RNA sequence: AACUCAUCCAGAGUUGGCGGAGGGACUGGCCCGAUGAAGCUGCGGCAACCAUUUGACAGAGUCUCUGUCGAAACGGUGCCAAUUCCGGCGAAUUUUUUUCGCAAGAUGGGAG
Dot-bracket structure: ..((((((....(.((((...(((.[[[[)))......)))))((((.((.(((((((.......)))))))..))))))...(]]]]((((.....))))..)))))))..

This 112-nucleotide RNA sequence from Acetonema longum belongs to the Rfam family "SAM riboswitch aptamer (S box leader)".
Rfam links the family to the GO term regulation of gene expression.
From the family's description: The SAM riboswitch is found upstream of a number of genes which code for proteins involved in methionine or cysteine biosynthesis in Gram-positive bacteria.
The organism belongs to Acetonema longum, within Bacteria.